[Rfam]
RNA sequence: UGCAAGUUUUUUACGAUUUAGAAGCAACUAUUUCUUGUAUGGAUUGUGUAUUAAUCU
Numbered sequence: 001u002g003c004a005a006g007u008u009u010u011u012u013a014c015g016a017u018u019u020a021g022a023a024g025c026a027a028c029u030a031u032u033u034c035u036u037g038u039a040u041g042g043a044u045u046g047u048g049u050a051u052u053a054a055u056c057u
Stems, first nucleotide, its partner, number of pairs: 018037001020035005
The family of this 57-nucleotide sequence from Gossypium raimondii is "Plastid-rps18 3UTR RNA". Plastid rps18 is a non-coding RNA (ncRNA) present in plastids. It was identified as a short stem-loop motif in the 3 prime untranslate region (3UTR) of rps18 gene. A search with the family's covariance model found it, with a score of 63 bits. It is annotated as a cis-regulatory element.